[Rfam]
The family of this 61-nucleotide sequence from Kingdonia uniflora is "Plastid-psbA-4 3UTR RNA". Taxonomically the source falls in Kingdonia (Eukaryota, Viridiplantae, Tracheophyta, Mesangiospermae). On this family, see Richter et al., Plant Commun 2023: "Retrograde signaling in plants: A critical review focusing on the GUN pathway and beyond". About the family: Plastid psbA-4 is a non-coding RNA (ncRNA) present in plastids. It was identified in inverted repeat sequences in the 3 prime untranslate region (3UTR) of photosystem II quinone-binding protein (psbA). The match comes from Rfam's covariance-model search (65 bits). The base pairs follow the family's consensus structure, which was predicted with LocARNA. The family is grouped with related families in Rfam's "Plastid-psbA 3UTR RNA clan".
RNA sequence: UAAAUGAAGGAGCAAUACCCACCCUCUUGAUAGAACAAGAACUUGGGUAUUGCUCCUUCAA
Numbered sequence: 001u002a003a004a005u006g007a008a009g010g011a012g013c014a015a016u017a018c019c020c021a022c023c024c025u026c027u028u029g030a031u032a033g034a035a036c037a038a039g040a041a042c043u044u045g046g047g048u049a050u051u052g053c054u055c056c057u058u059c060a061a
Stems, first nucleotide, its partner, number of pairs: 006059012021044001025040005
Dot-bracket structure: .....((((((((((((...(...(((((......)))))...)...))))))))))))..